[Rfam]
RNA: Bacterial large subunit ribosomal RNA, nucleotides 8 to 568
Organism: [Eubacterium] yurii
RNA sequence: GAACAAAGAGCAUAAGGUGAAUGCCUUGGUGAUUAGAGCCGAAGAAGGACGUGGCAAGCUGCGAAAAGCUAUGAUAAGGAGCAAACAUCCGUAAUAGUCAUAGAUCUCCGAAUGAGGAAACUCACUUAAUAGAGAUAUUAAGUAUCCAUUGCUAAAUACAUAGGCAAUAGGAAGGGAACCCACCGAACUGAAACAUCUAAGUAAGUGGAGGAAAAGAAAGAAACAUCGAUUCCCAAAGUAGCGGCGAGCGAAAUGGGAGGAGGCCAAACCGAAUAAGGAAACUUAAUCGGGGUGAGGGAAGCUGAUAAAUGAUUGAGGUAUCGCAAAAGAAAUACUUGGGAAAGUAUACCAAAGAAGGUAAGAGUCCUGUACUUGAAGCGAGAAGACACAUAAGCUUUACCCGAGUAUCGUAGGACACGAGGAACCCUGCGAGAAAGAUGGGGGACCACCCCCAAAGCCUAAAUACUACUAAUCAACCGAUAGAGAAUAGUACCGUGAGGGAAAGGUGAAAAGAACCCCGGGAGGGGAGUGAAAAAGAACCUGAAACCAUAUGCUUACAAA
Numbered sequence: 001g002a003a004c005a006a007a008g009a010g011c012a013u014a015a016g017g018u019g020a021a022u023g024c025c026u027u028g029g030u031g032a033u034u035a036g037a038g039c040c041g042a043a044g045a046a047g048g049a050c051g052u053g054g055c056a057a058g059c060u061g062c063g064a065a066a067a068g069c070u071a072u073g074a075u076a077a078g079g080a081g082c083a084a085a086c087a088u089c090c091g092u093a094a095u096a097g098u099c100a101u102a103g104a105u106c107u108c109c110g111a112a113u114g115a116g117g118a119a120a121c122u123c124a125c126u127u128a129a130u131a132g133a134g135a136u137a138u139u140a141a142g143u144a145u146c147c148a149u150u151g152c153u154a155a156a157u158a159c160a161u162a163g164g165c166a167a168u169a170g171g172a173a174g175g176g177a178a179c180c181c182a183c184c185g186a187a188c189u190g191a192a193a194c195a196u197c198u199a200a201g202u203a204a205g206u207g208g209a210g211g212a213a214a215a216g217a218a219a220g221a222a223a224c225a226u227c228g229a230u231u232c233c234c235a236a237a238g239u240a241g242c243g244g245c246g247a248g249c250g251a252a253a254u255g256g257g258a259g260g261a262g263g264c265c266a267a268a269c270c271g272a273a274u275a276a277g278g279a280a281a282c283u284u285a286a287u288c289g290g291g292g293u294g295a296g297g298g299a300a301g302c303u304g305a306u307a308a309a310u311g312a313u314u315g316a317g318g319u320a321u322c323g324c325a326a327a328a329g330a331a332a333u334a335c336u337u338g339g340g341a342a343a344g345u346a347u348a349c350c351a352a353a354g355a356a357g358g359u360a361a362g363a364g365u366c367c368u369g370u371a372c373u374u375g376a377a378g379c380g381a382g383a384a385g386a387c388a389c390a391u392a393a394g395c396u397u398u399a400c401c402c403g404a405g406u407a408u409c410g411u412a413g414g415a416c417a418c419g420a421g422g423a424a425c426c427c428u429g430c431g432a433g434a435a436a437g438a439u440g441g442g443g444g445a446c447c448a449c450c451c452c453c454a455a456a457g458c459c460u461a462a463a464u465a466c467u468a469c470u471a472a473u474c475a476a477c478c479g480a481u482a483g484a485g486a487a488u489a490g491u492a493c494c495g496u497g498a499g500g501g502a503a504a505g506g507u508g509a510a511a512a513g514a515a516c517c518c519c520g521g522g523a524g525g526g527g528a529g530u531g532a533a534a535a536a537g538a539a540c541c542u543g544a545a546a547c548c549a550u551a552u553g554c555u556u557a558c559a560a561a
Stems, first nucleotide, its partner, number of pairs: 008556007016548002023541001024506002028478002030475007037467002039175002047109003050063003069103007078090003114123003124143007145172003148168006179210001180208004190197002220227002230463001231258005241249002261460004269290004274285002296402003300396004314388002319383001321381004326374002332347005350354001356368003408432007439454005493500002516527004